[Rfam]
RNA sequence: AGUUACACUGAGUGGCCAGAUUAUUAUGAGCUCUAAACGCAUAAUAAUCUGGCCACUCAGAGUAUAU
Numbered sequence: 001a002g003u004u005a006c007a008c009u010g011a012g013u014g015g016c017c018a019g020a021u022u023a024u025u026a027u028g029a030g031c032u033c034u035a036a037a038c039g040c041a042u043a044a045u046a047a048u049c050u051g052g053c054c055a056c057u058c059a060g061a062g063u064a065u066a067u
Stems, first nucleotide, its partner, number of pairs: 004064003008060010019049010

Rfam assigns this 67-nucleotide RNA sequence from Pipistrellus kuhlii to the family "mir-9256 microRNA precursor family". The family's consensus secondary structure was predicted with RNAalifold. The source organism's lineage runs through Eukaryota, Deuterostomia, Gnathostomata, Amniota and Pipistrellus.